About this RNA
Fluoride riboswitch aptamer (crcB RNA motif): a 59-nucleotide sequence from Lactobacillus helveticus. Pairs were carried over by alignment from the consensus structure, which is taken from published work. Rfam's curators put it in the seed alignment. Rfam links the family to the GO terms response to fluoride and positive regulation of gene expression. The source organism's lineage runs through Bacteria, Bacillati, Bacillota, Lactobacillus and Lactobacillus helveticus.

Nucleotides: 059
Stems, first nucleotide, its partner, number of pairs: 010025004016050001018048004033040002
Number, partner (000 for none) and nucleotide at each position: 001000a002000a003000c004000u005000a006000a007000a008000u009000a010025g011024g012023u013022g014000a015000u016050g017000a018048c019047g020046u021045u022013c023012a024011c025010c026000a027000u028000u029000a030000a031000c032000c033040g034039a035000g036000a037000g038000a039034u040033c041000u042000a043000a044000u045021g046020a047019c048018g049000g050016c051000u052000a053000c054000u055000u056000u057000a058000u059000c